[Rfam]
RNA sequence: AACAUAUCGGAGGGACAUUUUUUGGUCAGUUGCUUGUAUCUCUCCCAAGCUUCAUAGAGGGAUUCACCUUCUUUCUAUCUGAAAGUUUAAACAUCCACUCUAAUCUU
Numbered sequence: 001a002a003c004a005u006a007u008c009g010g011a012g013g014g015a016c017a018u019u020u021u022u023u024g025g026u027c028a029g030u031u032g033c034u035u036g037u038a039u040c041u042c043u044c045c046c047a048a049g050c051u052u053c054a055u056a057g058a059g060g061g062a063u064u065c066a067c068c069u070u071c072u073u074u075c076u077a078u079c080u081g082a083a084a085g086u087u088u089a090a091a092c093a094u095c096c097a098c099u100c101u102a103a104u105c106u107u
Stems, first nucleotide, its partner, number of pairs: 001107001004104001005102002057074002060071001

Plant small nucleolar RNA R71: a 107-nucleotide RNA from Arachis hypogaea. By type it is a C/D-box small nucleolar RNA. Gene Ontology terms of the family: nucleolus and RNA processing. A reference for the family is Brown et al. (2003), "Plant snoRNAs: functional evolution and new modes of gene expression", Trends Plant Sci. The base pairs follow the family's consensus structure, which was predicted with PFOLD. Lineage of the source: Eukaryota > Pentapetalae > Fabaceae > Dalbergieae > Arachis.